Shown here is a 236-nucleotide RNA from Azospirillum sp. RU38E, a member of the family "permuted transfer-messenger RNA". Gene Ontology term of the family: RNA catabolic process. It is annotated as a non-coding RNA gene. It scores 154 bits against the family's covariance model. Bacterial tmRNA, also known as 10Sa RNA or SsrA, is named for its dual tRNA and mRNA-like properties. Its role is to liberate the mRNA from a stalled ribosome. The family's consensus secondary structure is taken from published work.

RNA sequence: GGGGAUAAACGCGGUGUGGAAUAGACGUUGCGGACCCGGGGGCGGUACCCGGCGCCUCCACCAUUCUCCCUCCGGUCAUGCGGUUAUCGUGGCUGCCGGCGGGUUCAUGGGGGCGAACUAGGAUCGACGCGCGUAAUAAAGGCAUAGUCUUCUCCCGGCAUGAUACCGCCGUUAUCGGGUCAAACCUUAUAGAUGCCAACGAUAACUCGGCGUCUGACCUUCGCAUGGCUGCCUAA
Number, nucleotide and partner (000 for none) at each position: 001g155002g154003g153004g152005a151006u000007a000008a000009a000010c000011g000012c000013g000014g145015u144016g143017u142018g000019g000020a000021a000022u000023a000024g000025a000026c133027g132028u131029u000030g130031c129032g128033g000034a000035c000036c052037c051038g050039g049040g048041g000042g000043c000044g000045g000046u000047a000048c040049c039050c038051g037052g036053c115054g114055c113056c112057u111058c110059c109060a000061c000062c000063a000064u000065u000066c000067u000068c000069c000070c000071u000072c000073c000074g000075g000076u000077c000078a000079u000080g000081c000082g000083g000084u000085u000086a000087u000088c000089g000090u000091g000092g000093c000094u000095g000096c000097c000098g000099g000100c000101g000102g000103g000104u000105u000106c000107a000108u000109g059110g058111g057112g056113g055114c054115g053116a000117a000118c000119u000120a000121g000122g000123a000124u000125c000126g000127a000128c032129g031130c030131g028132c027133g026134u000135a000136a000137u000138a000139a000140a000141g000142g017143c016144a015145u014146a000147g000148u000149c000150u000151u005152c004153u003154c002155c001156c171157g170158g169159c168160a000161u000162g000163a000164u000165a000166c000167c000168g159169c158170c157171g156172u000173u000174a000175u000176c000177g000178g000179g000180u000181c000182a000183a000184a000185c000186c000187u000188u000189a000190u000191a000192g000193a000194u000195g000196c000197c000198a000199a000200c000201g000202a000203u000204a000205a000206c000207u000208c000209g000210g000211c000212g000213u000214c000215u000216g000217a000218c000219c000220u000221u000222c000223g000224c000225a000226u000227g000228g000229c000230u000231g000232c000233c000234u000235a000236a000